This 112-nucleotide sequence from Rhizobium sp. NFR07 belongs to the Rfam family "TPP riboswitch aptamer (THI element)". Gene Ontology term of the family: thiamine pyrophosphate binding. The source organism's lineage runs through Bacteria, Pseudomonadati, Alphaproteobacteria, Rhizobiaceae and Rhizobium. Vitamin B(1) in its active form thiamin pyrophosphate (TPP) is an essential coenzyme that is synthesised by coupling of pyrimidine and thiazole moieties in bacteria.
RNA sequence: UUGCGCAGACAGGGGUGCUCCGUAAUGCCGGGGCUGAGAUACGGUCGCCAAGAUCGUGGACCCUCAAGCUGAUCUGGAUAAUGCCAGCGGAGCGAGGUUCAAGCGAUGUUUU
Numbered sequence: 001u002u003g004c005g006c007a008g009a010c011a012g013g014g015g016u017g018c019u020c021c022g023u024a025a026u027g028c029c030g031g032g033g034c035u036g037a038g039a040u041a042c043g044g045u046c047g048c049c050a051a052g053a054u055c056g057u058g059g060a061c062c063c064u065c066a067a068g069c070u071g072a073u074c075u076g077g078a079u080a081a082u083g084c085c086a087g088c089g090g091a092g093c094g095a096g097g098u099u100c101a102a103g104c105g106a107u108g109u110u111u112u
Stems, first nucleotide, its partner, number of pairs: 007099002010096001011064004016058001017034005041057005068093003074087004